A member of the RNA family "Plastid-ccsA-ndhD-2 3UTR RNA" from Rhododendron simsii, 53 nucleotides long. It is annotated as a cis-regulatory element. Pairs were carried over by alignment from the consensus structure, which was predicted with LocARNA. For this family Rfam cites "Retrograde signaling in plants: A critical review focusing on the GUN pathway and beyond" (Richter et al., Plant Commun, 2023). The match comes from Rfam's covariance-model search (62 bits). Plastid ccsA-ndhD-2 is a non-coding RNA (ncRNA) recognised in plastids. It was found in the three prime untranslated region (3UTR) of ccsA and ndhD genes, its 3UTR location suggests a role in transcript maturation.

[Rfam]
RNA sequence: UCGGUGAGAACCAUUUGAAUCAAGUAUUGGAGUGAUUCACAUGGUUCUCAGAA
Numbered sequence: 001u002c003g004g005u006g007a008g009a010a011c012c013a014u015u016u017g018a019a020u021c022a023a024g025u026a027u028u029g030g031a032g033u034g035a036u037u038c039a040c041a042u043g044g045u046u047c048u049c050a051g052a053a
Base pairs, nucleotide, nucleotide: 005050006049007048008047009046010045011044012043013042014041016039017038018037019036020035021034022033
Dot-bracket structure: ....((((((((((.(((((((..........))))))).))))))))))...